[Rfam]
RNA: Antisense to pHK01_035
RNA sequence: AGUCAUAAAUGGAUUCCUUAUGACAAAUUGGUUAACAAUGCCGUCAAAAUUGGUCGCACAAUUCUUACGGCGUGGAUUAAGCAGGUCCCUGACCUGCUUUUU
Number, nucleotide and partner (000 for none) at each position: 001a000002g024003u023004c022005a021006u020007a019008a018009a000010u000011g000012g000013a000014u000015u000016c000017c000018u008019u007020a006021u005022g004023a003024c002025a000026a000027a000028u000029u000030g000031g000032u000033u000034a000035a000036c000037a000038a000039u000040g071041c070042c069043g068044u067045c000046a000047a000048a000049a062050u061051u060052g059053g000054u000055c000056g000057c000058a000059c052060a051061a050062u049063u000064c000065u000066u000067a044068c043069g042070g041071c040072g000073u000074g000075g000076a000077u000078u000079a099080a098081g097082c096083a095084g094085g093086u092087c091088c000089c000090u000091g087092a086093c085094c084095u083096g082097c081098u080099u079100u000101u000102u000